[Rfam]
RNA sequence: GAAGAAAACAUCAUUGAGUGCAGCGUUGAUGAAACUGAAGUAUUCCAUUUUUCAGCUUCUUUGAAGUCCGGCAAGAUGGGUUCUGGUUGAUUCCAUUGGCGCUGCACUCAAUCAUGUCUUUU
Numbered sequence: 001g002a003a004g005a006a007a008a009c010a011u012c013a014u015u016g017a018g019u020g021c022a023g024c025g026u027u028g029a030u031g032a033a034a035c036u037g038a039a040g041u042a043u044u045c046c047a048u049u050u051u052u053c054a055g056c057u058u059c060u061u062u063g064a065a066g067u068c069c070g071g072c073a074a075g076a077u078g079g080g081u082u083c084u085g086g087u088u089g090a091u092u093c094c095a096u097u098g099g100c101g102c103u104g105c106a107c108u109c110a111a112u113c114a115u116g117u118c119u120u121u122u
Stems, first nucleotide, its partner, number of pairs: 006119001008117004013112016030095002
The family of this 122-nucleotide sequence from Vitis vinifera is "MIR397 microRNA precursor family". Its family is annotated with RISC complex and miRNA-mediated post-transcriptional gene silencing in the Gene Ontology. A reference for the family is Mica et al. (2009), "High throughput approaches reveal splicing of primary microRNA transcripts and tissue specific expression of mature microRNAs in Vitis vinifera", BMC Genomics.